RNA sequence: CCAAAGGCUCUUUUAAGAGCCACCCACAAAACCCAAAAGAGAGCUG
Dot-bracket structure: .....((((((....)))))).........................

Background: The family of this 46-nucleotide RNA sequence from Naja naja is "Histone 3' UTR stem-loop". The mRNAs of metazoan histone genes lack a poly-A tail. 3' end processing occurs at a site between a highly conserved stem-loop (modelled by this family) and a purine rich region around 20 nts downstream (the histone downstream element, or HDE). Lineage of the source: Eukaryota > Opisthokonta > Tetrapoda > Sauria > Naja. The family's RNA type in Rfam is cis-regulatory element.